[Rfam]
RNA sequence: UUGCAUGUCCGACACUUCCUGCUUCUCUUUAAAGAGCACAGAUUUAUCCACGCUAUGCAACAUGAAUGAAAUGAGAAGUUGGCAGGGCUGCCAACCUUUCCAUUGUGGCUUUGAGGUAGUGUAUUUCUUCUACAAUA
Numbered sequence: 001u002u003g004c005a006u007g008u009c010c011g012a013c014a015c016u017u018c019c020u021g022c023u024u025c026u027c028u029u030u031a032a033a034g035a036g037c038a039c040a041g042a043u044u045u046a047u048c049c050a051c052g053c054u055a056u057g058c059a060a061c062a063u064g065a066a067u068g069a070a071a072u073g074a075g076a077a078g079u080u081g082g083c084a085g086g087g088c089u090g091c092c093a094a095c096c097u098u099u100c101c102a103u104u105g106u107g108g109c110u111u112u113g114a115g116g117u118a119g120u121g122u123a124u125u126u127c128u129u130c131u132a133c134a135a136u137a
Stems, first nucleotide, its partner, number of pairs: 003058005020038005075130004087117002091113001093110001095108002098105001
Shown here is a 137-nucleotide RNA from Cavia porcellus, a member of the family "Small nucleolar RNA U109". On this family, see Richard et al., EMBO J 2003: "A common sequence motif determines the Cajal body-specific localization of box H/ACA scaRNAs". The family's consensus secondary structure was predicted with WAR. Rfam classes the family as an H/ACA-box small nucleolar RNA.